RNA sequence: UUGCCUUAAACUAAUGAGUAAGGAAAACAAAGCGAUGCGGUGAGAGCCGCUCGCGGUGCGGGAGACAAUCCUGCGCAGCAAUUUUUGCGAGGGGAAGAGGCCGGUGCGGGCACUGACACUGCUUACUUUUGCAGGACUUGCCCUGUGCUGGCCUCCCU
Numbered sequence: 001u002u003g004c005c006u007u008a009a010a011c012u013a014a015u016g017a018g019u020a021a022g023g024a025a026a027a028c029a030a031a032g033c034g035a036u037g038c039g040g041u042g043a044g045a046g047c048c049g050c051u052c053g054c055g056g057u058g059c060g061g062g063a064g065a066c067a068a069u070c071c072u073g074c075g076c077a078g079c080a081a082u083u084u085u086u087g088c089g090a091g092g093g094g095a096a097g098a099g100g101c102c103g104g105u106g107c108g109g110g111c112a113c114u115g116a117c118a119c120u121g122c123u124u125a126c127u128u129u130u131g132c133a134g135g136a137c138u139u140g141c142c143c144u145g146u147g148c149u150g151g152c153c154u155c156c157c158u
Base pairs, nucleotide, nucleotide: 004023005022006021007020008019032054033053034052037050038049039048040047056076057075058074059073060072091158092157093156094155098154099153100152101151102150103149104148108143109142110141111140112139119134120133121132122131